[Rfam]
Annotation:
SAM riboswitch aptamer (S box leader): a 116-nucleotide RNA sequence from Salipaludibacillus neizhouensis. Rfam describes the family as follows. The SAM riboswitch is found upstream of a number of genes which code for proteins involved in methionine or cysteine biosynthesis in Gram-positive bacteria. Rfam links the family to the GO term regulation of gene expression.
RNA sequence: UUCUUAUUGUGAGAGAUGGAGGGAAAGGCCCUUUGAAGUCUCAGCAACCAGCUGCGAGUAAUUGUCCGUGGUCAGGUGCUAAUUCCUGCAAGCCAAGGUGCUUGCAAAGAUAAGAA
Numbered sequence: 001u002u003c004u005u006a007u008u009g010u011g012a013g014a015g016a017u018g019g020a021g022g023g024a025a026a027g028g029c030c031c032u033u034u035g036a037a038g039u040c041u042c043a044g045c046a047a048c049c050a051g052c053u054g055c056g057a058g059u060a061a062u063u064g065u066c067c068g069u070g071g072u073c074a075g076g077u078g079c080u081a082a083u084u085c086c087u088g089c090a091a092g093c094c095a096a097g098g099u100g101c102u103u104g105c106a107a108a109g110a111u112a113a114g115a116a
Stems, first nucleotide, its partner, number of pairs: 001116008013042005021031003026087003043080004048076002050072001052070001084108001089104005